RNA: MIR5269 microRNA precursor family
RNA sequence: UUGGUUUUAAUUAUUGUAGGUCUACACUUUGAAAAUUGAACUUACACAAAGUAGUGAGACAUACACUAAUUUCAUCAAA
Number, nucleotide and partner (000 for none) at each position: 001u079002u078003g000004g076005u000006u074007u000008u000009a071010a070011u069012u068013a067014u000015u065016g064017u063018a062019g000020g000021u000022c000023u056024a055025c000026a052027c051028u050029u049030u048031g047032a000033a000034a000035a000036u000037u000038g000039a000040a000041c000042u000043u000044a000045c000046a000047c031048a030049a029050a028051g027052u026053a000054g000055u024056g023057a000058g000059a000060c000061a000062u018063a017064c016065a015066c000067u013068a012069a011070u010071u009072u000073c000074a006075u000076c004077a000078a002079a001